[Rfam]
RNA: Small nucleolar RNA SNORA57
Organism: Cervus hanglu
RNA sequence: CAUCCUUUUCUUGGCAGGGGUCGGGCGUGCAACCCCGAUCCGCAUAAUGUACAGAGGUAGAGGGGAUGGGCUCUGGCCCGCUCGGUGUCCUGUCUUCACUACCAGCAGUCACCAGUCUGCCAGUUCUAUCCUCAAGCGCUGGGACACAG
Numbered sequence: 001c002a003u004c005c006u007u008u009u010c011u012u013g014g015c016a017g018g019g020g021u022c023g024g025g026c027g028u029g030c031a032a033c034c035c036c037g038a039u040c041c042g043c044a045u046a047a048u049g050u051a052c053a054g055a056g057g058u059a060g061a062g063g064g065g066a067u068g069g070g071c072u073c074u075g076g077c078c079c080g081c082u083c084g085g086u087g088u089c090c091u092g093u094c095u096u097c098a099c100u101a102c103c104a105g106c107a108g109u110c111a112c113c114a115g116u117c118u119g120c121c122a123g124u125u126c127u128a129u130c131c132u133c134a135a136g137c138g139c140u141g142g143g144a145c146a147c148a149g
Stems, first nucleotide, its partner, number of pairs: 001057001003055002018041003022037004083141006102123001105120004